[Rfam]
RNA sequence: AGAGCCGUACAAUGAAGGUUUAGCGAGCCACAUUGGCCCCGAGUCAUGUGGGUGGGUCGGUAACGACACAUCUGAAGCGUUGACAGGGGUACAUGCGGGCCGGGUAUUGAGCCGCGUAAGUUCUUGCGUAACAGAUCGGAGUGCCGACGCUGUCGAAACUGUCGGAAGGCAAUACUGGAUACGCCGUUAUCGCAAGGCAUAUUCAGACUCCGCGCGGUCGAAGACCC
Dot-bracket structure: .........(((((..(((([.[[.)))).))))).((((..((((((((((((.((((....)))).))))))...)).)))).))))..................((.((((((....................(((((((((..((.(.........).))...)))....(((((((.(((......]].]))).)))))))))))))))))))).)......

About this RNA
A member of the RNA family "Group II catalytic intron D1-D4-6" from Anaerohalosphaera lusitana, 227 nucleotides long. Taxonomically the source falls in Anaerohalosphaera (Bacteria, Planctomycetota, Sedimentisphaerales, Anaerohalosphaeraceae). Rfam's curators write: Group II introns are found in rRNA, tRNA and mRNA of organelles in fungi, plants and protists, and also in mRNA in bacteria.